[Rfam]
RNA sequence: GCCCUUCUUAUGAUGAAGCAUUUACGGAUGUAAAUGAGCUGCGGCUCGCCAGUCCGAGAGCGCAAAACCCCAUGUGGAUUCCUCCGUUGCCUUCCUUCUGACCCUAUAGUC
Numbered sequence: 001g002c003c004c005u006u007c008u009u010a011u012g013a014u015g016a017a018g019c020a021u022u023u024a025c026g027g028a029u030g031u032a033a034a035u036g037a038g039c040u041g042c043g044g045c046u047c048g049c050c051a052g053u054c055c056g057a058g059a060g061c062g063c064a065a066a067a068c069c070c071c072a073u074g075u076g077g078a079u080u081c082c083u084c085c086g087u088u089g090c091c092u093u094c095c096u097u098c099u100g101a102c103c104c105u106a107u108a109g110u111c
Stems, first nucleotide, its partner, number of pairs: 004109002025086004
A member of the RNA family "Small nucleolar RNA Z13/snr52" from Punctularia strigosozonata, 111 nucleotides long. The family's RNA type in Rfam is C/D-box small nucleolar RNA. Pairs were carried over by alignment from the consensus structure, which was predicted with PFOLD.